[Rfam]
RNA sequence: CGCUCAUCCAGAGGGGUGGAGGGACCGGCCCUACGAAGCCCCGGCAACCGCCCGGUAAGCGCGCUCUCGCGAUCCUGCGAGGCCGACCGGGAAGUGGUGCCAACUCCGGCCUGUGACCAAGGUGGCACAGGAAAGAUGGGGG
Numbered sequence: 001c002g003c004u005c006a007u008c009c010a011g012a013g014g015g016g017u018g019g020a021g022g023g024a025c026c027g028g029c030c031c032u033a034c035g036a037a038g039c040c041c042c043g044g045c046a047a048c049c050g051c052c053c054g055g056u057a058a059g060c061g062c063g064c065u066c067u068c069g070c071g072a073u074c075c076u077g078c079g080a081g082g083c084c085g086a087c088c089g090g091g092a093a094g095u096g097g098u099g100c101c102a103a104c105u106c107c108g109g110c111c112u113g114u115g116a117c118c119a120a121g122g123u124g125g126c127a128c129a130g131g132a133a134a135g136a137u138g139g140g141g142g
Base pairs, nucleotide, nucleotide: 001142003140004139005138006137007136008135013042014041015040016039017038021031022030023029025109026108027107028106043101044100045099046098048097049096052091053090105134110131111130112129113128114127115126
RNA: SAM riboswitch aptamer (S box leader)
Organism: Actinomadura kijaniata